RNA: Plant small nucleolar RNA R71
RNA sequence: AUGUCAGAACGACACUUUUUGGUCAGUUCCUUGUAUCUCUUCCAAGCUUCAUAGAAGGAUUCACCUUCUUUCUGUUUGAAGGUUUAAACAUCCACUCUGAGCUU
Numbered sequence: 001a002u003g004u005c006a007g008a009a010c011g012a013c014a015c016u017u018u019u020u021g022g023u024c025a026g027u028u029c030c031u032u033g034u035a036u037c038u039c040u041u042c043c044a045a046g047c048u049u050c051a052u053a054g055a056a057g058g059a060u061u062c063a064c065c066u067u068c069u070u071u072c073u074g075u076u077u078g079a080a081g082g083u084u085u086a087a088a089c090a091u092c093c094a095c096u097c098u099g100a101g102c103u104u
Base pairs, nucleotide, nucleotide: 001104003102004101005099006098054071055070057068